[Rfam]
RNA sequence: GCUCGUUAAGGGCAAAUCUAGCGAAAGCUAGAGACGCAAAGUUACCGGUCUAAGGGAUCAUCCUACGACAGCGGAACUGCCAAA
Dot-bracket structure: ...........((...((((((....))))))...))..((((.((((((....(((...)))...)))..)))))))......
The family of this 84-nucleotide RNA from Endozoicomonas sp. G2_1 is "c-di-GMP-I riboswitch aptamer". Pairs were carried over by alignment from the consensus structure, which is taken from published work.